[Rfam]
RNA sequence: GGCUGGUUCGAAGGUGGUUGUGGCUCCUCUCCAUUGGUUUUUCAUAGUUACAGAUCGAACUCCUUGUUCUGCUCUUUCCCUUCUUCUCACUGCUGCAGUUGACUAGUUUAAA
Numbered sequence: 001g002g003c004u005g006g007u008u009c010g011a012a013g014g015u016g017g018u019u020g021u022g023g024c025u026c027c028u029c030u031c032c033a034u035u036g037g038u039u040u041u042u043c044a045u046a047g048u049u050a051c052a053g054a055u056c057g058a059a060c061u062c063c064u065u066g067u068u069c070u071g072c073u074c075u076u077u078c079c080c081u082u083c084u085u086c087u088c089a090c091u092g093c094u095g096c097a098g099u100u101g102a103c104u105a106g107u108u109u110a111a112a
Base pairs, nucleotide, nucleotide: 001108002107003106004105005104006103007102008101010100011099014096015095016091017090018089020087022086046070047069
Dot-bracket structure: ((((((((.((..(((((.(.(.......................((.....................))...............)).)))...))..))))))))))....